[Rfam]
RNA sequence: AGCUUUGUGCAGUGGCAGUAUUGUAGCCAACGAGGUGUAUCUGAGGCGCGAUGAUUGCUAAUUGAAAACUUUUCCCAUCCCACAGUGAUCUCAUAGUAUUAAAGCUGUUAUUUUAAUUCAUUUUUUAUUGAUCAAUAUGAA
Numbered sequence: 001a002g003c004u005u006u007g008u009g010c011a012g013u014g015g016c017a018g019u020a021u022u023g024u025a026g027c028c029a030a031c032g033a034g035g036u037g038u039a040u041c042u043g044a045g046g047c048g049c050g051a052u053g054a055u056u057g058c059u060a061a062u063u064g065a066a067a068a069c070u071u072u073u074c075c076c077a078u079c080c081c082a083c084a085g086u087g088a089u090c091u092c093a094u095a096g097u098a099u100u101a102a103a104g105c106u107g108u109u110a111u112u113u114u115a116a117u118u119c120a121u122u123u124u125u126u127a128u129u130g131a132u133c134a135a136u137a138u139g140a141a
Stems, first nucleotide, its partner, number of pairs: 020052005026047003034042002084118003087114002091110001093108004132140003
RNA: U4 spliceosomal RNA
Organism: Chinchilla lanigera